[Rfam]
RNA sequence: GGUAUCUUAAAAAUAUAUUGCAUGAGCAUGAUGAAGUGAAGCUCAAUGUGAGUACUCUGAAGUCC
Numbered sequence: 001g002g003u004a005u006c007u008u009a010a011a012a013a014u015a016u017a018u019u020g021c022a023u024g025a026g027c028a029u030g031a032u033g034a035a036g037u038g039a040a041g042c043u044c045a046a047u048g049u050g051a052g053u054a055c056u057c058u059g060a061a062g063u064c065c
Stems, first nucleotide, its partner, number of pairs: 001064003011056001018051002023045005